[Rfam]
Description
Rfam assigns this 97-nucleotide sequence from Enterococcus alcedinis to the family "Purine riboswitch aptamer". Rfam links the family to the GO term purine nucleobase biosynthetic process.
RNA sequence: UUUUUCAUAAUUAGUCUUCCUUAUAUAUUGCCGUAAUCGGUCGGCAGUUUCUACCUGGUACCGUAAAUACCGGACUAUAAGUGAAAAAAGUGUUUUA
Numbered sequence: 001u002u003u004u005u006c007a008u009a010a011u012u013a014g015u016c017u018u019c020c021u022u023a024u025a026u027a028u029u030g031c032c033g034u035a036a037u038c039g040g041u042c043g044g045c046a047g048u049u050u051c052u053a054c055c056u057g058g059u060a061c062c063g064u065a066a067a068u069a070c071c072g073g074a075c076u077a078u079a080a081g082u083g084a085a086a087a088a089a090g091u092g093u094u095u096u097a
Stems, first nucleotide, its partner, number of pairs: 018083001020081006029046005055073006